[Rfam]
RNA sequence: AAACGAAUAUCAUUUGUACCGUAGACAGUAGGUGCCUCAUAUAGGCUUAAUUUCCUACCGAGGUGUUGAGACUCAUAAAUAAGUGCAUCUUGCACUUUUCGGGGGCCUCCAUGUCUGCGUUGACAUGGAGGUUUUUUAUUGAACGG
Numbered sequence: 001a002a003a004c005g006a007a008u009a010u011c012a013u014u015u016g017u018a019c020c021g022u023a024g025a026c027a028g029u030a031g032g033u034g035c036c037u038c039a040u041a042u043a044g045g046c047u048u049a050a051u052u053u054c055c056u057a058c059c060g061a062g063g064u065g066u067u068g069a070g071a072c073u074c075a076u077a078a079a080u081a082a083g084u085g086c087a088u089c090u091u092g093c094a095c096u097u098u099u100c101g102g103g104g105g106c107c108u109c110c111a112u113g114u115c116u117g118c119g120u121u122g123a124c125a126u127g128g129a130g131g132u133u134u135u136u137u138a139u140u141g142a143a144c145g146g
Base pairs, nucleotide, nucleotide: 028058029057030056031055032054034046035045036044106131107130108129109128110127111126112125113124114123115122
A member of the RNA family "Ribosomal protein L10 leader" from Anoxybacillus flavithermus, 146 nucleotides long.
The match comes from Rfam's covariance-model search (82 bits).
Rfam's curators write: This family is a putative r-protein leader autoregulatory structure found in B. subtilis and other low-GC Gram-positive bacteria.
Lineage of the source: Bacteria > Bacillati > Bacillota > Caryophanales > Anoxybacillus.
For this family Rfam cites "Diverse mechanisms for regulating ribosomal protein synthesis in Escherichia coli" (Zengel and Lindahl, Prog Nucleic Acid Res Mol Biol, 1994).